The family of this 184-nucleotide RNA sequence from Psychrobacillus glaciei is "Group II catalytic intron D1-D4-5". About the family: Group II introns are found in rRNA, tRNA and mRNA of organelles in fungi, plants and protists, and also in mRNA in bacteria. It scores 78 bits against the family's covariance model.
[Rfam]
RNA sequence: UUCAACUUUACAACGGAGGAUAGGAAUGAUGGAGCCAUGUUUCCUAAAACUAUCCCAUUAAUACUCCUGCAUGCGUCAUGAUUGACUGGUCAUGGGGUGUGAAGCACAGGUAGAUUCGGUUGAACUAGGCUGAAGCCAUUCUUAUGGAUAAGGUAUGCCGAAGGAUAGACUGCAUGGCUGAAAA
Numbered sequence: 001u002u003c004a005a006c007u008u009u010a011c012a013a014c015g016g017a018g019g020a021u022a023g024g025a026a027u028g029a030u031g032g033a034g035c036c037a038u039g040u041u042u043c044c045u046a047a048a049a050c051u052a053u054c055c056c057a058u059u060a061a062u063a064c065u066c067c068u069g070c071a072u073g074c075g076u077c078a079u080g081a082u083u084g085a086c087u088g089g090u091c092a093u094g095g096g097g098u099g100u101g102a103a104g105c106a107c108a109g110g111u112a113g114a115u116u117c118g119g120u121u122g123a124a125c126u127a128g129g130c131u132g133a134a135g136c137c138a139u140u141c142u143u144a145u146g147g148a149u150a151a152g153g154u155a156u157g158c159c160g161a162a163g164g165a166u167a168g169a170c171u172g173c174a175u176g177g178c179u180g181a182a183a184a
Stems, first nucleotide, its partner, number of pairs: 018055006031045002034042001056176003066110004070101005076095008117172005125163002128159003131150002137146002